[Rfam]
RNA sequence: GGGUGCCUGAGGCUUUCUGCGUUCAGGCUUAGGUGAGGAUUCAGAAAGACGAAGCCCCAGGAGAUGUUCCCAUCAACCUGAGGCUCACGAUCCAACCCUAGCACGUUGGAUAGUAGCCUCUUCUUCGCAUGGAGGCAACGAGAUGCUGACAACAUACG
Numbered sequence: 001g002g003g004u005g006c007c008u009g010a011g012g013c014u015u016u017c018u019g020c021g022u023u024c025a026g027g028c029u030u031a032g033g034u035g036a037g038g039a040u041u042c043a044g045a046a047a048g049a050c051g052a053a054g055c056c057c058c059a060g061g062a063g064a065u066g067u068u069c070c071c072a073u074c075a076a077c078c079u080g081a082g083g084c085u086c087a088c089g090a091u092c093c094a095a096c097c098c099u100a101g102c103a104c105g106u107u108g109g110a111u112a113g114u115a116g117c118c119u120c121u122u123c124u125u126c127g128c129a130u131g132g133a134g135g136c137a138a139c140g141a142g143a144u145g146c147u148g149a150c151a152a153c154a155u156a157c158g
Stems, first nucleotide, its partner, number of pairs: 001058003005055002008053001011050001013048007021040002024037001027034002059079003063074004080120005088113001090111007124149002128145002
RNA: sok antitoxin (CssrC)
Organism: Klebsiella michiganensis